RNA sequence: GGGGCGGCAGGGGUCUGGUGGCCCAGACGGCCUUCAAAGCCGCGAGGGCGUCGCAGUCCGACGCUUGGAAGGUUCGAUUCCUUCGCCGCCUC
Numbered sequence: 001g002g003g004g005c006g007g008c009a010g011g012g013g014u015c016u017g018g019u020g021g022c023c024c025a026g027a028c029g030g031c032c033u034u035c036a037a038a039g040c041c042g043c044g045a046g047g048g049c050g051u052c053g054c055a056g057u058c059c060g061a062c063g064c065u066u067g068g069a070a071g072g073u074u075c076g077a078u079u080c081c082u083u084c085g086c087c088g089c090c091u092c
Stems, first nucleotide, its partner, number of pairs: 001092008011024005028042004046066005069083004

Record summary
A member of the RNA family "Selenocysteine transfer RNA" from a Solirubrobacterales bacterium, 92 nucleotides long. Pairs were carried over by alignment from the consensus structure, which is taken from published work. Lineage of the source: Bacteria > Bacillati > Actinomycetota > Thermoleophilia > Solirubrobacterales.